[Rfam]
RNA sequence: UGAGUUAAGUGGAGAAGUAGUCUCUGCACUUUUUCUUUUCAAGUGAGAUUCAACUCCUCCAACUUAUUUCA
Numbered sequence: 001u002g003a004g005u006u007a008a009g010u011g012g013a014g015a016a017g018u019a020g021u022c023u024c025u026g027c028a029c030u031u032u033u034u035c036u037u038u039u040c041a042a043g044u045g046a047g048a049u050u051c052a053a054c055u056c057c058u059c060c061a062a063c064u065u066a067u068u069u070c071a
Stems, first nucleotide, its partner, number of pairs: 007065003010061005017055001018053001023048002027045005